Trypanosomatid snoRNA TB10Cs3H2: a 72-nucleotide RNA from Phytomonas sp. EM1.
[Rfam]
RNA sequence: UGCCGUCAGAUCCGACCGGGCAGGAUGGCACCUUCAAACAUUGUGGUGUGUGUCCAAUCGGUGGGUCGAGAU
Dot-bracket structure: ........(((((..((.....(((((.((((............))))..)))))....)).))))).....
Numbered sequence: 001u002g003c004c005g006u007c008a009g010a011u012c013c014g015a016c017c018g019g020g021c022a023g024g025a026u027g028g029c030a031c032c033u034u035c036a037a038a039c040a041u042u043g044u045g046g047u048g049u050g051u052g053u054c055c056a057a058u059c060g061g062u063g064g065g066u067c068g069a070g071a072u
Stems, first nucleotide, its partner, number of pairs: 009067005016061002023055005029048004
Pairs were carried over by alignment from the consensus structure, which was predicted with WAR.
It scores 54 bits against the family's covariance model.
For this family Rfam cites "A genome-wide analysis of C/D and H/ACA-like small nucleolar RNAs in Trypanosoma brucei reveals a trypanosome-specific pattern of rRNA modification" (Liang et al., RNA, 2005).
Gene Ontology terms of the family: nucleolus and RNA processing.
By type it is an H/ACA-box small nucleolar RNA.